Shown here is a 120-nucleotide sequence from Octodon degus, a member of the family "Small nucleolar RNA SNORA26". The literature on the family includes a 2001 paper in EMBO J by Huttenhofer et al., "RNomics: an experimental approach that identifies 201 candidates for novel, small, non-messenger RNAs in mouse". Taxonomically the source falls in Octodon (Eukaryota, Metazoa, Theria, Glires). It scores 128 bits against the family's covariance model. The snoRNA HBI-6 belong to the H/ACA family of snoRNAs, guiding the pseudouridylation of position U4522 if the 28S rRNA. HBI-6 is the human orthologue of mouse MBI-6 snoRNA.
RNA sequence: UUGCCCUUUUAAGGUUGACACAGUGCCUUAAGAGGCUAACACAGAAAGGUAAAGGAAGCCUCCACAAAACCCAGAGAAGGGCCUGAAACUCCUCUUUGGAUCCUGUCUGGAGUCACAACU
Dot-bracket structure: .((((.((((...((((.(.(..........)..).))))..)))).))))......(.(((((......(((((((.(((.......))).)))))))........))))).)......